Source information: A member of the RNA family "Small nucleolar RNA SNORA32" from Macaca fascicularis, 108 nucleotides long. The match comes from Rfam's covariance-model search (104 bits). The base pairs follow the family's consensus structure, which was predicted with RNAfold. NCBI's taxonomy places the organism under Eukaryota, Opisthokonta, Dipnotetrapodomorpha, Amniota, Macaca. Rfam links the family to the GO terms nucleolus and RNA processing. It is annotated as an H/ACA-box small nucleolar RNA. ACA32 is a member of the H/ACA class of snoRNA that guide the sites of modification of uridines to pseudouridines.
[Rfam]
RNA sequence: UGGUAAUUACCAAGAUUUUUAGAAUGCAGUGGACAUGACCAUAAAAUAAUUUCCCACUAGAUUUUUUUAUCUGUUACCUUGCUAGCAAGUAGUCUGUUGGGAACAUUU
Numbered sequence: 001u002g003g004u005a006a007u008u009a010c011c012a013a014g015a016u017u018u019u020u021a022g023a024a025u026g027c028a029g030u031g032g033a034c035a036u037g038a039c040c041a042u043a044a045a046a047u048a049a050u051u052u053c054c055c056a057c058u059a060g061a062u063u064u065u066u067u068u069a070u071c072u073g074u075u076a077c078c079u080u081g082c083u084a085g086c087a088a089g090u091a092g093u094c095u096g097u098u099g100g101g102a103a104c105a106u107u108u
Stems, first nucleotide, its partner, number of pairs: 003039002006036002010032003053101004060094004072087003